[Rfam]
Rfam assigns this 150-nucleotide RNA from Biomphalaria glabrata to the family "U12 minor spliceosomal RNA". The family has 62 seed sequences and 2,106 matches in Rfam 15.1. Its family is annotated with U12 snRNP, mRNA branch site recognition and pre-mRNA branch point binding in the Gene Ontology. A reference for the family is Otake et al. (2002), "The divergent U12-type spliceosome is required for pre-mRNA splicing and is essential for development in Drosophila", Mol Cell. Pairs were carried over by alignment from the consensus structure. The organism belongs to Biomphalaria, within Eukaryota.

RNA sequence: AUGCCUUAAACUAAUGAGUAAGGAAAAUAACGAGCCUGGGUGAUUACAGGCUCCCAGACAUUCAGUUCUGGAAGAAUUUCUUUACGGGCUCAGGACCACCCCAAGGUGACCCACCUACUUCGUGGGAUGCCUGGGUGAUGGACUUGCCCU
Numbered sequence: 001a002u003g004c005c006u007u008a009a010a011c012u013a014a015u016g017a018g019u020a021a022g023g024a025a026a027a028u029a030a031c032g033a034g035c036c037u038g039g040g041u042g043a044u045u046a047c048a049g050g051c052u053c054c055c056a057g058a059c060a061u062u063c064a065g066u067u068c069u070g071g072a073a074g075a076a077u078u079u080c081u082u083u084a085c086g087g088g089c090u091c092a093g094g095a096c097c098a099c100c101c102c103a104a105g106g107u108g109a110c111c112c113a114c115c116u117a118c119u120u121c122g123u124g125g126g127a128u129g130c131c132u133g134g135g136u137g138a139u140g141g142a143c144u145u146g147c148c149c150u
Base pairs, nucleotide, nucleotide: 004023005022006021007020008019032053033052034051035050036049037048038047054071055070056069057068058067086149087148088147089146092145093144094143096141097140098139101135102134104132105131106130107129108128110126111125112124113123114122